[Rfam]
RNA sequence: AAAACGGCCCUUUUCAGGGCCACCAAUUACAAACAUUCUAAGUUUAU
Numbered sequence: 001a002a003a004a005c006g007g008c009c010c011u012u013u014u015c016a017g018g019g020c021c022a023c024c025a026a027u028u029a030c031a032a033a034c035a036u037u038c039u040a041a042g043u044u045u046a047u
Stems, first nucleotide, its partner, number of pairs: 006021006
A member of the RNA family "Histone 3' UTR stem-loop" from Aphis glycines, 47 nucleotides long.